[Rfam]
A member of the RNA family "Iron response element II" from Rhodinocichla rosea, 31 nucleotides long. The family's consensus secondary structure is taken from published work. Rfam links the family to the GO term response to iron ion. Rfam classes the family as a cis-regulatory element. Rfam 15.1 lists 5,197 matches to the family in 722 species. For this family Rfam cites "A cytosolic protein binds to structural elements within the iron regulatory region of the transferrin receptor mRNA" (Koeller et al., Proc Natl Acad Sci U S A, 1989).
RNA sequence: AAAAUAUUUUUGGCAGUGUCUAAAAUAUUUU
Number, nucleotide and partner (000 for none) at each position: 001a031002a030003a029004a028005u027006a026007u025008u000009u024010u023011u022012g021013g020014c018015a000016g000017u000018g014019u000020c013021u012022a011023a010024a009025a007026u006027a005028u004029u003030u002031u001